[Rfam]
RNA sequence: AUUUAUCCUCGGGGCGGGGUGAAAUUCCCCACCGGCGGUGUUGAGACAGGAUCGGACGCGUUCAUGCGCUUCCUUGAUCAGUCUCUCAGUCCGUGACCCGUAAUCUGUGCCUUGUGGCCGGAUGCGGUGGAUCUGGUGAGAAUCCGGAGCCGACAGUAUAGUCUGGAUGGGAGAGGAAAGAG
Numbered sequence: 001a002u003u004u005a006u007c008c009u010c011g012g013g014g015c016g017g018g019g020u021g022a023a024a025u026u027c028c029c030c031a032c033c034g035g036c037g038g039u040g041u042u043g044a045g046a047c048a049g050g051a052u053c054g055g056a057c058g059c060g061u062u063c064a065u066g067c068g069c070u071u072c073c074u075u076g077a078u079c080a081g082u083c084u085c086u087c088a089g090u091c092c093g094u095g096a097c098c099c100g101u102a103a104u105c106u107g108u109g110c111c112u113u114g115u116g117g118c119c120g121g122a123u124g125c126g127g128u129g130g131a132u133c134u135g136g137u138g139a140g141a142a143u144c145c146g147g148a149g150c151c152g153a154c155a156g157u158a159u160a161g162u163c164u165g166g167a168u169g170g171g172a173g174a175g176g177a178a179a180g181a182g
Stems, first nucleotide, its partner, number of pairs: 003180002006177005017029003031162002033152002035094004098127005132148005154165003